A member of the RNA family "mir-1890 microRNA precursor family" from Anopheles gambiae, 81 nucleotides long.
The family's consensus secondary structure was predicted with RNAalifold.
RNA sequence: GGACGGCCAGAGCUAAUUGGAGUAUUUCUUGAGGAAUAUUUUUGACAAGCUCAUGAAAUCUUUGAUUAGGUCUGGUUAUUC
Numbered sequence: 001g002g003a004c005g006g007c008c009a010g011a012g013c014u015a016a017u018u019g020g021a022g023u024a025u026u027u028c029u030u031g032a033g034g035a036a037u038a039u040u041u042u043u044g045a046c047a048a049g050c051u052c053a054u055g056a057a058a059u060c061u062u063u064g065a066u067u068a069g070g071u072c073u074g075g076u077u078a079u080u081c
Base pairs, nucleotide, nucleotide: 002080003079005077006076007075008074009073010072011071013069014068015067016066017065018064019063020062021061022060024059026057027056028055030053031052032051033050037047039045040044

Gene Ontology terms of the family: RISC complex and miRNA-mediated post-transcriptional gene silencing. Taxonomically the source falls in gambiae species complex (Eukaryota, Pterygota, Culicomorpha, Culicidae).